This 271-nucleotide sequence from Pseudozyma flocculosa belongs to the Rfam family "Group I catalytic intron". From the family's description: Group I catalytic introns are large self-splicing ribozymes. They catalyse their own excision from mRNA, tRNA and rRNA precursors in a wide range of organisms. The core secondary structure consists of 9 paired regions (P1-P9).

[Rfam]
RNA sequence: GCGUCUGCGUAAUACGUGAGUAUUAUGAAAAAAUAUUGGGUGAAUUGCAAGGAUCUCUUAUUAAUAUGGGUGAUAUAAAUUAAUAAGACAAUUUGCAGCUAAGCCUUGAUCGGCGUAUAUAAAUAAAAUAUAGAUCAAGGAAAGUUCAACGACUAAUCGGUGAGUUACGUCAACAAUAAUCCGGAGACGAGCGCCCAACAUCUAUAUUUUUUAAUUAAUUAAUUAGUAAGAAUAGAUGAAGACAUAGUCUAAACUAGAUAGUGAUAUCUAG
Numbered sequence: 001g002c003g004u005c006u007g008c009g010u011a012a013u014a015c016g017u018g019a020g021u022a023u024u025a026u027g028a029a030a031a032a033a034u035a036u037u038g039g040g041u042g043a044a045u046u047g048c049a050a051g052g053a054u055c056u057c058u059u060a061u062u063a064a065u066a067u068g069g070g071u072g073a074u075a076u077a078a079a080u081u082a083a084u085a086a087g088a089c090a091a092u093u094u095g096c097a098g099c100u101a102a103g104c105c106u107u108g109a110u111c112g113g114c115g116u117a118u119a120u121a122a123a124u125a126a127a128a129u130a131u132a133g134a135u136c137a138a139g140g141a142a143a144g145u146u147c148a149a150c151g152a153c154u155a156a157u158c159g160g161u162g163a164g165u166u167a168c169g170u171c172a173a174c175a176a177u178a179a180u181c182c183g184g185a186g187a188c189g190a191g192c193g194c195c196c197a198a199c200a201u202c203u204a205u206a207u208u209u210u211u212u213a214a215u216u217a218a219u220u221a222a223u224u225a226g227u228a229a230g231a232a233u234a235g236a237u238g239a240a241g242a243c244a245u246a247g248u249c250u251a252a253a254c255u256a257g258a259u260a261g262u263g264a265u266a267u268c269u270a271g
Base pairs, nucleotide, nucleotide: 036198037197038196039195041193042192046097047096048095049094050093051092056088057087058086059085060084061083062082063081064080065079098145099144104139106137111133113131115129149250151249152248153247154246155245201236202235203234204233205232207230208229209228256269257268258267259266260265